[Rfam]
Nucleotides: 108
Stems, first nucleotide, its partner, number of pairs: 023098008037088008049080004
Number, partner (000 for none) and nucleotide at each position: 001000c002000a003000c004000u005000a006000a007000u008000u009000u010000a011000a012000u013000u014000u015000a016000a017000a018000a019000c020000a021000c022000a023098c024097a025096u026095a027094c028093a029092c030091u031000a032000a033000g034000a035000c036000c037088c038087g039086u040085u041084g042083u043082c044081g045000g046000g047000g048000u049080g050079u051078c052077u053000u054000c055000u056000c057000u058000a059000c060000u061000u062000a063000u064000a065000u066000u067000u068000g069000a070000g071000u072000a073000g074000c075000g076000u077052g078051g079050a080049u081044c082043g083042a084041u085040a086039g087038c088037g089000a090000g091030g092029g093028u094027g095026u096025a097024u098023g099000g100000a101000g102000g103000c104000c105000u106000a107000a108000c